[Rfam]
RNA sequence: AGCCUCAUUCUAGAUUAGAAUGGGCACUGUUUGUUAGUGUUCAGAAUUCGUCAGGGUAGCUAAAAUUGAGACACAGGUCCUGCUUCCAUCACAGUAAAUGUAUUACAGUGGUGACAAUGAGACCUGUAACAUUU
Numbered sequence: 001a002g003c004c005u006c007a008u009u010c011u012a013g014a015u016u017a018g019a020a021u022g023g024g025c026a027c028u029g030u031u032u033g034u035u036a037g038u039g040u041u042c043a044g045a046a047u048u049c050g051u052c053a054g055g056g057u058a059g060c061u062a063a064a065a066u067u068g069a070g071a072c073a074c075a076g077g078u079c080c081u082g083c084u085u086c087c088a089u090c091a092c093a094g095u096a097a098a099u100g101u102a103u104u105a106c107a108g109u110g111g112u113g114a115c116a117a118u119g120a121g122a123c124c125u126g127u128a129a130c131a132u133u134u
Stems, first nucleotide, its partner, number of pairs: 002060002006056001008054001021043007073127005087113006

Small nucleolar RNA SNORA1: a 134-nucleotide RNA sequence from Fukomys damarensis. Rfam links the family to the GO terms RNA processing and nucleolus. ACA1 is a member of the H/ACA class of snoRNA that guide the sites of modification of uridines to pseudouridines. Rfam 15.1 lists 1,282 matches to the family in 515 species.